[Rfam]
RNA sequence: CCAGGGACUCACGUCCCUGGCUAUUGACUGUCGGCCCUUCGGGCCU
Numbered sequence: 001c002c003a004g005g006g007a008c009u010c011a012c013g014u015c016c017c018u019g020g021c022u023a024u025u026g027a028c029u030g031u032c033g034g035c036c037c038u039u040c041g042g043g044c045c046u
Stems, first nucleotide, its partner, number of pairs: 001020008033045005
RNA: Acido-Lenti-1 RNA